Source information: Shown here is a 90-nucleotide RNA sequence from Leuconostoc mesenteroides, a member of the family "RNA anti-toxin A". Rfam's curators put it in the seed alignment.
RNA sequence: UAAUGAAUACAGAAAAAGGAAGCCUUGCGCUAACAAGACUUCCCAUUAUAGAGCCGUAUAAGACGGUGGCAAACUUAAAACGAUUAAAUA
Numbered sequence: 001u002a003a004u005g006a007a008u009a010c011a012g013a014a015a016a017a018g019g020a021a022g023c024c025u026u027g028c029g030c031u032a033a034c035a036a037g038a039c040u041u042c043c044c045a046u047u048a049u050a051g052a053g054c055c056g057u058a059u060a061a062g063a064c065g066g067u068g069g070c071a072a073a074c075u076u077a078a079a080a081c082g083a084u085u086a087a088a089u090a
Stems, first nucleotide, its partner, number of pairs: 024037004053067005